Record summary:
The record is a 72-nucleotide RNA sequence from Eumeta japonica, which matches "mir-133 microRNA precursor family" in Rfam. About the family: mir-133 was first experimentally characterised in mouse and homologues have since been discovered in several other species. The base pairs follow the family's consensus structure, which was predicted with PFOLD.
RNA sequence: UCGCUUUAGCUGGUUGACUUCGGGUCAAAUUGUCAUGAAAAUCAUUUGGUCCCCUUCAACCAGCUGUAGUUA
Numbered sequence: 001u002c003g004c005u006u007u008a009g010c011u012g013g014u015u016g017a018c019u020u021c022g023g024g025u026c027a028a029a030u031u032g033u034c035a036u037g038a039a040a041a042u043c044a045u046u047u048g049g050u051c052c053c054c055u056u057c058a059a060c061c062a063g064c065u066g067u068a069g070u071u072a
Stems, first nucleotide, its partner, number of pairs: 003070003008065010022051002025049006
The match comes from Rfam's covariance-model search (60 bits). The literature on the family includes a 2002 paper in Curr Biol by Lagos-Quintana et al., "Identification of tissue-specific microRNAs from mouse".